[Rfam]
RNA sequence: GCUGGCAUAAUGAUGAAACUAUUGCCGUUUACCCAUCUGACUUGUUUUUGAUGUGUAUCUUUGAAUCUGAAAUGCCAGU
Numbered sequence: 001g002c003u004g005g006c007a008u009a010a011u012g013a014u015g016a017a018a019c020u021a022u023u024g025c026c027g028u029u030u031a032c033c034c035a036u037c038u039g040a041c042u043u044g045u046u047u048u049u050g051a052u053g054u055g056u057a058u059c060u061u062u063g064a065a066u067c068u069g070a071a072a073u074g075c076c077a078g079u
Base pairs, nucleotide, nucleotide: 001079002078003077004076005075006074007073

Notes: Rfam assigns this 79-nucleotide sequence from Tyto alba to the family "Small nucleolar RNA SNORD87". Lineage of the source: Eukaryota > Eumetazoa > Neognathae > Telluraves > Tyto. On this family, see Gogolevskaya et al., Gene 2002: "U87 RNA, a novel C/D box small nucleolar RNA from mammalian cells". The family's RNA type in Rfam is C/D-box small nucleolar RNA.